[Rfam]
The record is a 41-nucleotide sequence from Pantoea alhagi, which matches "nuoG RNA" in Rfam. The organism belongs to Pantoea, within Bacteria. The family's RNA type in Rfam is cis-regulatory element. A search with the family's covariance model found it, with a score of 33 bits.

RNA sequence: GAAUUGUGUUUAACGCUCGGUGAUGCCGAGCCUUACGGAAG
Dot-bracket structure: ..............(((((((...)))))))..........
Numbered sequence: 001g002a003a004u005u006g007u008g009u010u011u012a013a014c015g016c017u018c019g020g021u022g023a024u025g026c027c028g029a030g031c032c033u034u035a036c037g038g039a040a041g
Stems, first nucleotide, its partner, number of pairs: 015031007